[Rfam]
RNA sequence: GACGUGGGUUCGGAGUCGCAGCGGGGCAUGUCGAGCUGAAUGCGCUCGUAAAACAGAUUCAAACAAACUAACUGCAAACGACGAACGUUUCGCACUCGCUGCUUAAUUGCCAGUGAGCCUUGCAACAGUUGGCCGAUGGGCUGGGCAAGGGGGUCUGGAGCAAUCCUGACCUCCCGGCUGCAAGGAUAAUUACAUGGGCUGGCUCCGAUCCGGGUACCUUGGGUCGGGGUGAGAAAAUAGGGUGCUGGCGUCCGGUUUAGCGUGUGACUGCGCGACUCCGGAAGCGAGACUCAAAUCAGAUCACUAAACAUGUAGAACUGCGCGAUGAAGGCUUGCGGACGGGGGUUCAAAUCCCC
Numbered sequence: 001g002a003c004g005u006g007g008g009u010u011c012g013g014a015g016u017c018g019c020a021g022c023g024g025g026g027c028a029u030g031u032c033g034a035g036c037u038g039a040a041u042g043c044g045c046u047c048g049u050a051a052a053a054c055a056g057a058u059u060c061a062a063a064c065a066a067a068c069u070a071a072c073u074g075c076a077a078a079c080g081a082c083g084a085a086c087g088u089u090u091c092g093c094a095c096u097c098g099c100u101g102c103u104u105a106a107u108u109g110c111c112a113g114u115g116a117g118c119c120u121u122g123c124a125a126c127a128g129u130u131g132g133c134c135g136a137u138g139g140g141c142u143g144g145g146c147a148a149g150g151g152g153g154u155c156u157g158g159a160g161c162a163a164u165c166c167u168g169a170c171c172u173c174c175c176g177g178c179u180g181c182a183a184g185g186a187u188a189a190u191u192a193c194a195u196g197g198g199c200u201g202g203c204u205c206c207g208a209u210c211c212g213g214g215u216a217c218c219u220u221g222g223g224u225c226g227g228g229g230u231g232a233g234a235a236a237a238u239a240g241g242g243u244g245c246u247g248g249c250g251u252c253c254g255g256u257u258u259a260g261c262g263u264g265u266g267a268c269u270g271c272g273c274g275a276c277u278c279c280g281g282a283a284g285c286g287a288g289a290c291u292c293a294a295a296u297c298a299g300a301u302c303a304c305u306a307a308a309c310a311u312g313u314a315g316a317a318c319u320g321c322g323c324g325a326u327g328a329a330g331g332c333u334u335g336c337g338g339a340c341g342g343g344g345g346u347u348c349a350a351a352u353c354c355c356c
Stems, first nucleotide, its partner, number of pairs: 003337008015326005021321004027312005032048005037061005095117007118185006126143004132199003136195003202230009213246005249284001251282005258275001260273003264304004268299003343355003
Shown here is a 356-nucleotide RNA sequence from Variovorax paradoxus, a member of the family "transfer-messenger RNA". The family's consensus secondary structure is taken from published work. Rfam's curators put it in the seed alignment. On this family, see Williams and Bartel, RNA 1996: "Phylogenetic analysis of tmRNA secondary structure". Rfam describes the family as follows. Bacterial tmRNA, also known as 10Sa RNA or SsrA, is named for its dual tRNA and mRNA-like properties. Its role is to liberate the mRNA from a stalled ribosome. To accomplish this part of the tmRNA is used as a reading frame that ends in a translation stop signal. The broken mRNA is replaced in the ribosome by the tmRNA and translation of the tmRNA leads to addition of a proteolysis tag to the incomplete protein enabling recognition by a protease. Recently a number of permuted tmRNA genes have been found encoded in two parts. tmRNAs have been identified in eubacteria and some chloroplasts but are absent from archaeal and eukaryote nuclear genomes.